A member of the RNA family "Mammalian CPEB3 ribozyme" from Alligator mississippiensis, 72 nucleotides long. From the family's description: The mammalian CPEB3 ribozyme is a self cleaving RNA located in the second intron of the CPEB3 gene which belongs to a family of genes regulating messenger RNA polyadenylation. It scores 44 bits against the family's covariance model. Gene Ontology term of the family: RNA nuclease activity.
RNA sequence: CAAGUUUAAGGCCAUAGCAGAAGUGCUCACAGCACAGUUUGUCAGAUUCCAGUGAAAUCUGGGAAUUCUGCU
Numbered sequence: 001c002a003a004g005u006u007u008a009a010g011g012c013c014a015u016a017g018c019a020g021a022a023g024u025g026c027u028c029a030c031a032g033c034a035c036a037g038u039u040u041g042u043c044a045g046a047u048u049c050c051a052g053u054g055a056a057a058u059c060u061g062g063g064a065a066u067u068c069u070g071c072u
Stems, first nucleotide, its partner, number of pairs: 008039001011038002016072007023035003043061006
Dot-bracket structure: .......[..[[...((((((((((.......))).]]]...((((((.......))))))....)))))))